This 84-nucleotide RNA sequence from Gluconobacter oxydans belongs to the Rfam family "Repression of heat shock gene expression (ROSE) element".
RNA sequence: CCGGCCGCCAAAGGGGUCGGCAAACAGAACUAUCAGUUUUGAUCUUGUGUCCAUGUUGCUCAAAGGAGGAUAUGGCUAUGAGAG
Numbered sequence: 001c002c003g004g005c006c007g008c009c010a011a012a013g014g015g016g017u018c019g020g021c022a023a024a025c026a027g028a029a030c031u032a033u034c035a036g037u038u039u040u041g042a043u044c045u046u047g048u049g050u051c052c053a054u055g056u057u058g059c060u061c062a063a064a065g066g067a068g069g070a071u072a073u074g075g076c077u078a079u080g081a082g083a084g
Base pairs, nucleotide, nucleotide: 001020002019003018004017005016006015008014009013023043025041026040027039028038029037030036031035044082045081046080047079048078049077051075052074053073054072055071056070057069059068060067061066
Gene Ontology terms of the family: response to temperature stimulus and regulation of translation. The literature on the family includes a 2004 paper in J Bacteriol by Balsiger et al., "Replicon-specific regulation of small heat shock genes in Agrobacterium tumefaciens". This family represents a 5' UTR cis-regulatory element found in heat shock mRNAs and is known as the ROSE (repression of heat shock gene expression) element. The ROSE element is a negative regulator of heat shock gene expression. The secondary structure is thought to be regulated by temperature. This regulation blocks access to the ribosome binding site under normal conditions. During heat shock however, the structure changes freeing the ribosome binding site and allowing expression to occur. Taxonomically the source falls in Gluconobacter oxydans (Bacteria, Pseudomonadota, Alphaproteobacteria, Gluconobacter).